DUF2800 RNA: a 159-nucleotide RNA sequence.

[Rfam]
RNA sequence: CCGCCGUCAGCUGGACGGAGUCAUGAACCGUUGCUCAACGGCUCACGGCGGACAAGUUAAUAAUGACGGCUGCCUUUUGAGCGGGUUGCCGCAGACCGAAACGGAGAAUCUCUCUGUCGGGCUGUGGUUAAUUUUCUGCACCCUUUUUGCAGCCGAACC
Number, nucleotide and partner (000 for none) at each position: 001c051002c050003g049004c048005c047006g000007u045008c000009a043010g042011c041012u040013g039014g032015a031016c030017g029018g028019a000020g000021u000022c000023a000024u000025g000026a000027a000028c018029c017030g016031u015032u014033g082034c081035u080036c079037a078038a077039c013040g012041g011042c010043u009044c000045a007046c000047g005048g004049c003050g002051g001052a000053c000054a000055a000056g000057u000058u000059a000060a000061u000062a000063a000064u000065g000066a000067c155068g154069g153070c152071u151072g150073c149074c000075u000076u000077u038078u037079g036080a035081g034082c033083g000084g000085g000086u000087u000088g128089c127090c126091g125092c124093a000094g000095a000096c000097c000098g000099a000100a000101a117102c116103g115104g114105a113106g000107a000108a000109u000110c000111u000112c000113u105114c104115u103116g102117u101118c000119g000120g000121g000122c000123u000124g092125u091126g090127g089128u088129u000130a000131a000132u000133u000134u000135u000136c000137u000138g000139c000140a000141c000142c000143c000144u000145u000146u000147u000148u000149g073150c072151a071152g070153c069154c068155g067156a000157a000158c000159c000
It is annotated as a cis-regulatory element.